[Rfam]
RNA sequence: AAAAAGGGCUCCUGUCAUGAGUGGCACGCGAGGGCGGCACAUCUGCCCCACAUGCAGAGCUAACAGCAAGAGGUUCUGGAAGCCUAGCACUUUCGAUAGCUGGACAGUUUGUGGUCAUUGGUCCCG
Dot-bracket structure: .......(((.((((((....)))))((.(.((((((.....))))).).).))(((((((..........)))))))).))).........................(.(.((((...))))).)